RNA sequence: GCCAGAAGAUGACGAUGUGCGCAGAAACCCACCCUGUGGGCUGCCCACAUCCGAGCCCCCCUGGU
Numbered sequence: 001g002c003c004a005g006a007a008g009a010u011g012a013c014g015a016u017g018u019g020c021g022c023a024g025a026a027a028c029c030c031a032c033c034c035u036g037u038g039g040g041c042u043g044c045c046c047a048c049a050u051c052c053g054a055g056c057c058c059c060c061c062u063g064g065u
Base pairs, nucleotide, nucleotide: 001065002064003063004062005061014051015050016049017048018047019046021044022043023042029039030038031037
The family of this 65-nucleotide RNA from Suricata suricatta is "Selenocysteine insertion sequence 1". It is annotated as a cis-regulatory element. The base pairs follow the family's consensus structure, which is taken from published work. The organism belongs to Suricata, within Eukaryota.